[Rfam]
RNA: MIR6152 microRNA precursor family
RNA sequence: UGGACAGAUUAUUGUAUUCGACCUUAUUCACAACGUGAAAUAGGGGAUUACACUGUUUUUUUCAACGGAAAGUGAAUCAAUUAACAUAAUAGACUCUG
Numbered sequence: 001u002g003g004a005c006a007g008a009u010u011a012u013u014g015u016a017u018u019c020g021a022c023c024u025u026a027u028u029c030a031c032a033a034c035g036u037g038a039a040a041u042a043g044g045g046g047a048u049u050a051c052a053c054u055g056u057u058u059u060u061u062u063c064a065a066c067g068g069a070a071a072g073u074g075a076a077u078c079a080a081u082u083a084a085c086a087u088a089a090u091a092g093a094c095u096c097u098g
Stems, first nucleotide, its partner, number of pairs: 002097003009092007017084002020082002026077006034067003037059007